[Rfam]
RNA: Mammalian CPEB3 ribozyme
RNA sequence: ACUUGGUACAUGGGGACCAUGGUAGAAGCGUUCACGUUCGCGAUCCCUGUCAGGUCUUAAUAAACCUGCGAAUUCUACC
Numbered sequence: 001a002c003u004u005g006g007u008a009c010a011u012g013g014g015g016a017c018c019a020u021g022g023u024a025g026a027a028g029c030g031u032u033c034a035c036g037u038u039c040g041c042g043a044u045c046c047c048u049g050u051c052a053g054g055u056c057u058u059a060a061u062a063a064a065c066c067u068g069c070g071a072a073u074u075c076u077a078c079c
Stems, first nucleotide, its partner, number of pairs: 013047004018042001021079007028041003051068005057062001